RNA sequence: GCUGCUAUAGGUGAUGGGGUUCGCCUGGAACUGCCCAAACUUUGUUAGGGCUGAUGACUCCUGCUUCAGG
Numbered sequence: 001g002c003u004g005c006u007a008u009a010g011g012u013g014a015u016g017g018g019g020u021u022c023g024c025c026u027g028g029a030a031c032u033g034c035c036c037a038a039a040c041u042u043u044g045u046u047a048g049g050g051c052u053g054a055u056g057a058c059u060c061c062u063g064c065u066u067c068a069g070g
Stems, first nucleotide, its partner, number of pairs: 010025004016061006033051004